[Rfam]
This 58-nucleotide RNA from Psychromonas sp. PRT-SC03 belongs to the Rfam family "Pseudomonas sRNA P26". Lineage of the source: Bacteria > Gammaproteobacteria > Alteromonadales > Psychromonadaceae > Psychromonas. By type it is a non-coding RNA gene. From the family's description: This small RNA (sRNA) was computationally identified in the genome of the opportunistic pathogen Pseudomonas aeruginosa and its expression verified by northern blot analysis. P26 is conserved across many Gammaproteobacteria species and appears to be consistently located between the DNA directed RNA polymerase (beta subunit) and 50S ribosomal protein L7/L12 genes.
RNA sequence: UUUAUAACAUAUUAGCCAUGUAAAUGGCACUGGCUGGUGAUUAUUUAAUCACCGGCCU
Numbered sequence: 001u002u003u004a005u006a007a008c009a010u011a012u013u014a015g016c017c018a019u020g021u022a023a024a025u026g027g028c029a030c031u032g033g034c035u036g037g038u039g040a041u042u043a044u045u046u047a048a049u050c051a052c053c054g055g056c057c058u
Stems, first nucleotide, its partner, number of pairs: 005029001008026002013020002032057010